[Rfam]
RNA sequence: AAAUAUUGUUUCCAACGCCACACACGCGCCGACACAUGAUGCUGGGUGCCCAUCCGCGGGUUGCAUCAUGGGGCGCGUGGAGGUUCAAC
Numbered sequence: 001a002a003a004u005a006u007u008g009u010u011u012c013c014a015a016c017g018c019c020a021c022a023c024a025c026g027c028g029c030c031g032a033c034a035c036a037u038g039a040u041g042c043u044g045g046g047u048g049c050c051c052a053u054c055c056g057c058g059g060g061u062u063g064c065a066u067c068a069u070g071g072g073g074c075g076c077g078u079g080g081a082g083g084u085u086c087a088a089c
Stems, first nucleotide, its partner, number of pairs: 023079008035070008048061004